The family of this 178-nucleotide RNA sequence from Chordeiles acutipennis is "Small Cajal body specific RNA 16". Lineage of the source: Eukaryota > Bilateria > Sarcopterygii > Dipnotetrapodomorpha > Chordeiles. A reference for the family is Darzacq et al. (2002), "Cajal body-specific small nuclear RNAs: a novel class of 2'-O-methylation and pseudouridylation guide RNAs", EMBO J. Rfam classes the family as a small Cajal body RNA. Its family is annotated with nucleolus and RNA processing in the Gene Ontology. About the family: scaRNAs are a specific class of small nuclear RNAs which localise to the Cajal bodies and guide the modification of RNA polymerase II transcribed spliceosomal RNAs U1, U2, U4, U5 and U12.

RNA sequence: GAGGGCUGGGGAAGGGCUGCUGGGUGGUGGGGCCACCGGGCCCAGCCUCGUACCAGCCAGCCCCACCCGCGCCCCAGAUCAACUGGCAGGUGGGCUCCGUGCUGGGUUCCCCUGUGCAGUAACAGGUGUGAGCAUCCACGCAGCGUUCUGAUGGUCAUGUAUGAUACUGCACACAGCG
Numbered sequence: 001g002a003g004g005g006c007u008g009g010g011g012a013a014g015g016g017c018u019g020c021u022g023g024g025u026g027g028u029g030g031g032g033c034c035a036c037c038g039g040g041c042c043c044a045g046c047c048u049c050g051u052a053c054c055a056g057c058c059a060g061c062c063c064c065a066c067c068c069g070c071g072c073c074c075c076a077g078a079u080c081a082a083c084u085g086g087c088a089g090g091u092g093g094g095c096u097c098c099g100u101g102c103u104g105g106g107u108u109c110c111c112c113u114g115u116g117c118a119g120u121a122a123c124a125g126g127u128g129u130g131a132g133c134a135u136c137c138a139c140g141c142a143g144c145g146u147u148c149u150g151a152u153g154g155u156c157a158u159g160u161a162u163g164a165u166a167c168u169g170c171a172c173a174c175a176g177c178g
Stems, first nucleotide, its partner, number of pairs: 003074004008068003015062004019057004024053002026047003030043001032041003087104002090100004113173009123163002129157003133153004140147001